Rfam assigns this 123-nucleotide RNA sequence from Priestia megaterium to the family "Ribosomal protein L20 leader". By type it is a cis-regulatory leader. The source organism's lineage runs through Bacteria, Bacilli, Bacillaceae, Priestia and Priestia megaterium. The match comes from Rfam's covariance-model search (82 bits).
RNA sequence: AUACAGAAGAAGAAGCACCCGCUUCUCACCUGAGUGACGCAUAGAGCAGUUAGCAGGUACAUCGUAUCUUAAUUAAAACGAUAGAAGUGUGGGUGCAGUAUGUACUCACACUUUUUUGUGUGA
Dot-bracket structure: ..........((((((....)))))).(((.....(((((.....)).)))....))).............................((((((((((...)))))))))).............
Numbered sequence: 001a002u003a004c005a006g007a008a009g010a011a012g013a014a015g016c017a018c019c020c021g022c023u024u025c026u027c028a029c030c031u032g033a034g035u036g037a038c039g040c041a042u043a044g045a046g047c048a049g050u051u052a053g054c055a056g057g058u059a060c061a062u063c064g065u066a067u068c069u070u071a072a073u074u075a076a077a078a079c080g081a082u083a084g085a086a087g088u089g090u091g092g093g094u095g096c097a098g099u100a101u102g103u104a105c106u107c108a109c110a111c112u113u114u115u116u117u118g119u120g121u122g123a
Stems, first nucleotide, its partner, number of pairs: 011026006028058003036051003039047002088110010